[Rfam]
This 75-nucleotide sequence from Xanthomonas oryzae belongs to the Rfam family "Xanthomonas sRNA sX9". The base pairs follow the family's consensus structure, which was predicted with RNAalifold. The family's RNA type in Rfam is small RNA. The family has 16 seed sequences and 309 matches in Rfam 15.1. A search with the family's covariance model found it, with a score of 51 bits.
RNA sequence: AGGUGCAACUCGUACACUGCAAUUGCUGCGCGCCGUCCACAGCCACCGGACGACCGCUCGCUCCACUUGUUCGCC
Numbered sequence: 001a002g003g004u005g006c007a008a009c010u011c012g013u014a015c016a017c018u019g020c021a022a023u024u025g026c027u028g029c030g031c032g033c034c035g036u037c038c039a040c041a042g043c044c045a046c047c048g049g050a051c052g053a054c055c056g057c058u059c060g061c062u063c064c065a066c067u068u069g070u071u072c073g074c075c
Stems, first nucleotide, its partner, number of pairs: 003015004020035001023032001047073007